This 102-nucleotide sequence from Ewingella americana belongs to the Rfam family "Yersinia sRNA 190".
The match comes from Rfam's covariance-model search (70 bits).
Pairs were carried over by alignment from the consensus structure.
Rfam describes the family as follows. The sRNA was identified by and is confirmed to have a stable secondary structure by using genome-wide structure probing at different temperatures. The function is unknown.
RNA sequence: GCGAAUUGCCACGAUAUCAUUAUAAUGCCCGACCUCAUGCUGAUGAGCAGGGUAGAUUUGCCGCGAAAUAGGUGACAAAUCGGUGACAUCAGGGUAUUUUCU
Numbered sequence: 001g002c003g004a005a006u007u008g009c010c011a012c013g014a015u016a017u018c019a020u021u022a023u024a025a026u027g028c029c030c031g032a033c034c035u036c037a038u039g040c041u042g043a044u045g046a047g048c049a050g051g052g053u054a055g056a057u058u059u060g061c062c063g064c065g066a067a068a069u070a071g072g073u074g075a076c077a078a079a080u081c082g083g084u085g086a087c088a089u090c091a092g093g094g095u096a097u098u099u100u101c102u
Stems, first nucleotide, its partner, number of pairs: 008028002014023003031095001033093003038085006044075001046073001048071001